Plastid-psbM 3UTR RNA: a 74-nucleotide sequence. For this family Rfam cites "Retrograde signaling in plants: A critical review focusing on the GUN pathway and beyond" (Richter et al., Plant Commun, 2023). The family has 237 seed sequences and 627 matches in Rfam 15.1.

RNA sequence: UUAGAUAGUAUGGUAGAAAGAAAACUUUUCUUUCUACCAUACUAUCUAUUUUUGUUAUUCUAGUGUAUACAGUU
Numbered sequence: 001u002u003a004g005a006u007a008g009u010a011u012g013g014u015a016g017a018a019a020g021a022a023a024a025c026u027u028u029u030c031u032u033u034c035u036a037c038c039a040u041a042c043u044a045u046c047u048a049u050u051u052u053u054g055u056u057a058u059u060c061u062a063g064u065g066u067a068u069a070c071a072g073u074u
Stems, first nucleotide, its partner, number of pairs: 004046018

The base pairs follow the family's consensus structure, which was predicted with LocARNA.